[Rfam]
RNA sequence: ACUCGGGGACGACCCUGAGCUGCAUUUUUUAUUCGGGACGACCCG
Numbered sequence: 001a002c003u004c005g006g007g008g009a010c011g012a013c014c015c016u017g018a019g020c021u022g023c024a025u026u027u028u029u030u031a032u033u034c035g036g037g038a039c040g041a042c043c044c045g
Base pairs, nucleotide, nucleotide: 002019003018004017005016006015007014008013034045035044036043037042
Guanidine-II riboswitch aptamer (mini-ykkC): a 45-nucleotide sequence from Methylovorus glucosotrophus.
The family's consensus secondary structure is taken from published work.
The organism belongs to Methylovorus glucosotrophus, within Bacteria.
Simpler in structure and has fewer highly conserved nucleotide positions than the ykkC-yxkD leader. Despite this each of its two stem-loop structures directly bind free guanidine. Therefore, mini-ykkC RNA motif represents a distinct class of guanidine-sensing RNAs. Its crystal structure was also determined.
It scores 42 bits against the family's covariance model.